The record is a 101-nucleotide RNA from Clostridium sp. CAG:265, which matches "Clostridioides difficile sRNA included into helicase gene" in Rfam.
RNA sequence: GCUUCUUUUGAUAGUGAUACAGAAAUGGAGGAAUCAAGAAGGCUUUGUUAUGUUGGUAUAACAAGAGCUAAAGAAAUGCUAUAUAUGACUUCAGCAGAGGU
Dot-bracket structure: ...(((.(.(..........(.(.....(((...........))).....).).(((...(.(..(((.........))).).)...)))).)..)))...
It scores 67 bits against the family's covariance model. This element was identified by RNA deep sequencing of Clostridioides difficile 630 where it is located within gene CD0749 (putative DNA helicase, UvrD/REP type) in the same direction as the gene. A strong transcription start site for this RNA was experimentally confirmed, in the 3' region of gene CD0749. The 3' end of the sRNA has not been confirmed and its length was arbitrarily set to 100nt. For inclusion criteria: Only sequences from order Clostridiales were included, mostly because the starting sequence belonged to this order and the large majority of sequences found by the different RFAM search iterations belonged to this order as well. Associated e-values did not exceed 1e-09. As the original RNA is part of a coding sequence (CDS), it is possible that homologies were detected due to selection pressure for the CDS rather than for a sRNA. R-scape identified only two significantly covarying pairs present in the structure (4-100 and 7-97). Thus evidence for structure is weak. The family's consensus secondary structure was predicted with LocARNA.